[Rfam]
RNA sequence: UGCAACCCCCAUCAAAUUGGUCGUUCCCCACCCAGGAACUACUAUACCAUAUUCCGAAUUC
Numbered sequence: 001u002g003c004a005a006c007c008c009c010c011a012u013c014a015a016a017u018u019g020g021u022c023g024u025u026c027c028c029c030a031c032c033c034a035g036g037a038a039c040u041a042c043u044a045u046a047c048c049a050u051a052u053u054c055c056g057a058a059u060u061c
Stems, first nucleotide, its partner, number of pairs: 018044004023039005
Overview: Rfam assigns this 61-nucleotide RNA sequence from Artemisia annua to the family "Plastid-psbN 5UTR RNA". Rfam describes the family as follows. Plastid psbN is a non-coding RNA (ncRNA) recognised in plastids. The family has 63 seed sequences and 2,345 matches in Rfam 15.1. It scores 71 bits against the family's covariance model. The base pairs follow the family's consensus structure, which was predicted with LocARNA. A reference for the family is Richter et al. (2023), "Retrograde signaling in plants: A critical review focusing on the GUN pathway and beyond", Plant Commun. It is annotated as a cis-regulatory element.